[Rfam]
Record summary:
A member of the RNA family "Lysine riboswitch aptamer" from Anaeroplasma bactoclasticum, 167 nucleotides long. Lineage of the source: Bacteria > Bacillati > Mollicutes > Anaeroplasmataceae > Anaeroplasma. The match comes from Rfam's covariance-model search (76 bits).
RNA sequence: UAAAUAAUUAGAGGUAGCAGUGCAAAUAAGUACUAUAUGGAAGGGGCACCUAGUGAAGUAUAGGAAAGGUAACCACUGCCGAAUAGCUAUGAAGGCAUUCAUAGACUAUGGGGAUAUAGGAAAUACUUAUAUCACUCCUGCAAUUUUGCAGAGGCGCUAAUGAAACA
Numbered sequence: 001u002a003a004a005u006a007a008u009u010a011g012a013g014g015u016a017g018c019a020g021u022g023c024a025a026a027u028a029a030g031u032a033c034u035a036u037a038u039g040g041a042a043g044g045g046g047c048a049c050c051u052a053g054u055g056a057a058g059u060a061u062a063g064g065a066a067a068g069g070u071a072a073c074c075a076c077u078g079c080c081g082a083a084u085a086g087c088u089a090u091g092a093a094g095g096c097a098u099u100c101a102u103a104g105a106c107u108a109u110g111g112g113g114a115u116a117u118a119g120g121a122a123a124u125a126c127u128u129a130u131a132u133c134a135c136u137c138c139u140g141c142a143a144u145u146u147u148g149c150a151g152a153g154g155c156g157c158u159a160a161u162g163a164a165a166c167a
Base pairs, nucleotide, nucleotide: 007161008160009159010158011157017079018078019077020076021075022074025070033063034062035061036060037059038058083109084108085107086106087104088103089102090101091100092099093098110136111135113133114132115131116130117129118128119127120126138151139150140149141148142147
Source information: Rfam's curators write: Riboswitches are metabolite binding domains within certain messenger RNAs that serve as precision sensors for their corresponding targets. Allosteric rearrangement of mRNA structure is mediated by ligand binding, and this results in modulation of gene expression.